About this RNA
Shown here is a 76-nucleotide sequence, a member of the family "S10-Clostridia ribosomal protein leader". The family's RNA type in Rfam is cis-regulatory leader. On this family, see Eckert and Weinberg, BMC Microbiol 2020: "Discovery of 20 novel ribosomal leader candidates in bacteria and archaea".

RNA sequence: UGAUAGCUAAGAAGCAUAGGUUGCCGUUUACGGGUUUUAUGUGGAGCGAAGGUCAUGUUGCAAAAACUGGCGACAA
Numbered sequence: 001u002g003a004u005a006g007c008u009a010a011g012a013a014g015c016a017u018a019g020g021u022u023g024c025c026g027u028u029u030a031c032g033g034g035u036u037u038u039a040u041g042u043g044g045a046g047c048g049a050a051g052g053u054c055a056u057g058u059u060g061c062a063a064a065a066a067c068u069g070g071c072g073a074c075a076a
Stems, first nucleotide, its partner, number of pairs: 014042007024033003052074003057071004